This 175-nucleotide RNA sequence from Clostridium sp. AM33-3 belongs to the Rfam family "Lysine riboswitch aptamer". Taxonomically the source falls in Clostridium (Bacteria, Bacillati, Bacillota, Clostridia). A search with the family's covariance model found it, with a score of 99 bits.
RNA sequence: CAGGCAAGUAGAGGUUGCGCGAAGCAUGAGUAAAGGAUCUGAUGCACCAGAAGCAGAAGAUGAUUCCUGAAAGGGUGGGCGCCGAAGAUACAGGACGGACUGGACGUCAUUUAUCUGGGUACAGGGUGAACAAUCCUGUAACUGUCAUCCGACCGGAUGGAGAGCUACUUAAAGC
Numbered sequence: 001c002a003g004g005c006a007a008g009u010a011g012a013g014g015u016u017g018c019g020c021g022a023a024g025c026a027u028g029a030g031u032a033a034a035g036g037a038u039c040u041g042a043u044g045c046a047c048c049a050g051a052a053g054c055a056g057a058a059g060a061u062g063a064u065u066c067c068u069g070a071a072a073g074g075g076u077g078g079g080c081g082c083c084g085a086a087g088a089u090a091c092a093g094g095a096c097g098g099a100c101u102g103g104a105c106g107u108c109a110u111u112u113a114u115c116u117g118g119g120u121a122c123a124g125g126g127u128g129a130a131c132a133a134u135c136c137u138g139u140a141a142c143u144g145u146c147a148u149c150c151g152a153c154c155g156g157a158u159g160g161a162g163a164g165c166u167a168c169u170u171a172a173a174g175c
Base pairs, nucleotide, nucleotide: 006170007169008168009167010166011165017082018081019080020079024076025075033068035066036065037064038063039062086116087115088114089113090112092110094108095107096106097105117143118142120140121139122138123137124136125135126134127133145160146159147158148157149156150155